Background: Rfam assigns this 95-nucleotide RNA sequence from Elaeis guineensis to the family "Small nucleolar RNA R44/J54/Z268 family". The family's RNA type in Rfam is C/D-box small nucleolar RNA. Pairs were carried over by alignment from the consensus structure, which was predicted with PFOLD. Gene Ontology terms of the family: nucleolus and RNA processing.
RNA sequence: GUUGCAAAUGAUGAUAAAACAGACAGGGACAUCUGCACUCAUAUUGGGGUUGAUGAUUGGGUCUUGGGAAUCAAGUUUUAUCUGUCUGAUGCAAC
Numbered sequence: 001g002u003u004g005c006a007a008a009u010g011a012u013g014a015u016a017a018a019a020c021a022g023a024c025a026g027g028g029a030c031a032u033c034u035g036c037a038c039u040c041a042u043a044u045u046g047g048g049g050u051u052g053a054u055g056a057u058u059g060g061g062u063c064u065u066g067g068g069a070a071u072c073a074a075g076u077u078u079u080a081u082c083u084g085u086c087u088g089a090u091g092c093a094a095c
Base pairs, nucleotide, nucleotide: 002094003093004092005091006090
It scores 55 bits against the family's covariance model.